Record summary:
A member of the RNA family "Guanidine-II riboswitch aptamer (mini-ykkC)" from Pollutimonas nitritireducens, 56 nucleotides long. Rfam 15.1 lists 1,589 matches to the family in 1,229 species. Lineage of the source: Bacteria > Pseudomonadota > Betaproteobacteria > Alcaligenaceae > Pollutimonas. About the family: Simpler in structure and has fewer highly conserved nucleotide positions than the ykkC-yxkD leader.
[Rfam]
Nucleotides: 056
Stems, first nucleotide, its partner, number of pairs: 001020001003018006044055004
Number, partner (000 for none) and nucleotide at each position: 001020c002000a003018g004017c005016g006015a007014g008013g009000a010000c011000g012000a013008c014007c015006u016005c017004g018003c019000c020001g021000u022000c023000g024000a025000u026000c027000a028000u029000u030000g031000c032000g033000g034000c035000g036000u037000a038000c039000a040000c041000a042000g043000u044055g045054g046053g047052g048000a049000c050000g051000a052047c053046c054045c055044c056000u